[Rfam]
RNA: L2-Alphaproteobacteria ribosomal protein leader
RNA sequence: GGGGACCUUCGGGGCCCUUUAACCAAAGGUGGGUCCGCCCAUCCGACAUACAGGCGGGGCAACCCGCCGCUAGCUAACGGAAGACAGAAA
Numbered sequence: 001g002g003g004g005a006c007c008u009u010c011g012g013g014g015c016c017c018u019u020u021a022a023c024c025a026a027a028g029g030u031g032g033g034u035c036c037g038c039c040c041a042u043c044c045g046a047c048a049u050a051c052a053g054g055c056g057g058g059g060c061a062a063c064c065c066g067c068c069g070c071u072a073g074c075u076a077a078c079g080g081a082a083g084a085c086a087g088a089a090a
Stems, first nucleotide, its partner, number of pairs: 001018004006014003028068005037063001